[Rfam]
RNA sequence: AUCCUUAUGCACGGGAAAUACGCAUAUCAGUGAGGAUUCGUCCGAGAUUGUGUUAUUGCUGGUUGAAAUUAACAUUUAACCUGACCCGCUCCUCAUAGUUUUAAGUGUCUUUUUACACUGUAGCUAUGUAGGGAAUUUUUGGAAUAUUUAUAUUUUGUACUCUUGCAAAAC
Numbered sequence: 001a002u003c004c005u006u007a008u009g010c011a012c013g014g015g016a017a018a019u020a021c022g023c024a025u026a027u028c029a030g031u032g033a034g035g036a037u038u039c040g041u042c043c044g045a046g047a048u049u050g051u052g053u054u055a056u057u058g059c060u061g062g063u064u065g066a067a068a069u070u071a072a073c074a075u076u077u078a079a080c081c082u083g084a085c086c087c088g089c090u091c092c093u094c095a096u097a098g099u100u101u102u103a104a105g106u107g108u109c110u111u112u113u114u115a116c117a118c119u120g121u122a123g124c125u126a127u128g129u130a131g132g133g134a135a136u137u138u139u140u141g142g143a144a145u146a147u148u149u150a151u152a153u154u155u156u157g158u159a160c161u162c163u164u165g166c167a168a169a170a171c
Stems, first nucleotide, its partner, number of pairs: 020053005026048003034043003090133003094128007102120001